RNA sequence: GCGGAAGUGGCGAAAUAGGCAUACGCGCGGGUUUUAGGUACCCGUGCCCGAGAGGGCGUGAGGGUUCAAGUCCCUUCUUCCGCA
Numbered sequence: 001g002c003g004g005a006a007g008u009g010g011c012g013a014a015a016u017a018g019g020c021a022u023a024c025g026c027g028c029g030g031g032u033u034u035u036a037g038g039u040a041c042c043c044g045u046g047c048c049c050g051a052g053a054g055g056g057c058g059u060g061a062g063g064g065u066u067c068a069a070g071u072c073c074c075u076u077c078u079u080c081c082g083c084a
Base pairs, nucleotide, nucleotide: 001083002082003081004080005079006078007077010026011025012024028044029043030042031041032040060076061075062074063073064072